Plastid-clpP 5UTR RNA: a 69-nucleotide RNA sequence from Carex littledalei. Plastid clpP is a non-coding RNA (ncRNA) recognised in plastids. It was found in the prime untranslated region (5UTR) of a protease complex subunit (clpP) in plastids, suggesting a posible cis-regulatory function. NCBI's taxonomy places the organism under Eukaryota, Tracheophyta, Petrosaviidae, Poales, Carex subgen. Euthyceras. By type it is a cis-regulatory element.
[Rfam]
RNA sequence: AACUCUGUGCUUAAUAACAAAGAGAAGCAGAAUUAUUCUAUACUUGAUAAGUACUUAUAUGGAAUGAGA
Numbered sequence: 001a002a003c004u005c006u007g008u009g010c011u012u013a014a015u016a017a018c019a020a021a022g023a024g025a026a027g028c029a030g031a032a033u034u035a036u037u038c039u040a041u042a043c044u045u046g047a048u049a050a051g052u053a054c055u056u057a058u059a060u061g062g063a064a065u066g067a068g069a
Stems, first nucleotide, its partner, number of pairs: 003022002006019003043068003051060003